[Rfam]
RNA sequence: UGGAGGUGAUGACUGAUUAUCUGAGAUACUGAUGAAAAUUAUCACAGAAAUCCUAGUUAGUCAAGUACUGAUCCAG
Dot-bracket structure: ((((...................................................................)))).
Numbered sequence: 001u002g003g004a005g006g007u008g009a010u011g012a013c014u015g016a017u018u019a020u021c022u023g024a025g026a027u028a029c030u031g032a033u034g035a036a037a038a039u040u041a042u043c044a045c046a047g048a049a050a051u052c053c054u055a056g057u058u059a060g061u062c063a064a065g066u067a068c069u070g071a072u073c074c075a076g
Stems, first nucleotide, its partner, number of pairs: 001075004
This 76-nucleotide RNA from Crocodylus porosus belongs to the Rfam family "Small nucleolar RNA SNORD20".
The family's RNA type in Rfam is C/D-box small nucleolar RNA.
The literature on the family includes a 1994 paper in Mol Cell Biol by Nicoloso et al., "U20, a novel small nucleolar RNA, is encoded in an intron of the nucleolin gene in mammals".
The source organism's lineage runs through Eukaryota, Eumetazoa, Archelosauria, Crocodylidae and Crocodylus.